[Rfam]
RNA sequence: AUUCGUUAGAUGAAUGUGAGGCGUUGGGUCGAUUUCACCCAAUCCAAGCCCCACAUUCAUCAGAGGUUCGU
Numbered sequence: 001a002u003u004c005g006u007u008a009g010a011u012g013a014a015u016g017u018g019a020g021g022c023g024u025u026g027g028g029u030c031g032a033u034u035u036c037a038c039c040c041a042a043u044c045c046a047a048g049c050c051c052c053a054c055a056u057u058c059a060u061c062a063g064a065g066g067u068u069c070g071u
Stems, first nucleotide, its partner, number of pairs: 004066001006064002009061010020050003024047006031040001
RNA: MIR6151 microRNA precursor family
Organism: Nicotiana sylvestris